[Rfam]
This 80-nucleotide RNA from Gloeophyllum trabeum belongs to the Rfam family "Small nucleolar RNA R38".
The base pairs follow the family's consensus structure, which was predicted with PFOLD.
Rfam 15.1 lists 2,295 matches to the family in 1,305 species.
Nucleotides: 080
Stems, first nucleotide, its partner, number of pairs: 001080007
Number, partner (000 for none) and nucleotide at each position: 001080g002079c003078u004077a005076u006075u007074a008000u009000g010000a011000u012000g013000a014000g015000a016000u017000a018000c019000a020000a021000c022000c023000a024000u025000a026000u027000u028000c029000a030000g031000u032000u033000a034000u035000c036000c037000c038000u039000g040000u041000c042000u043000u044000a045000a046000u047000c048000g049000u050000c051000a052000u053000g054000u055000c056000g057000a058000u059000a060000u061000u062000u063000c064000g065000a066000a067000u068000a069000u070000c071000u072000g073000a074007u075006a076005a077004u078003a079002g080001c
snoR38 is a C/D box small nucleolar RNA conserved across yeast, human, Arabidopsis and rice. It is encoded in the intron of elongation factor-1 gamma in both pombe and cerevisiae. snoR38 guides the methylation of 2'-O-ribose sites in 28S rRNA.
Its family is annotated with nucleolus and RNA processing in the Gene Ontology.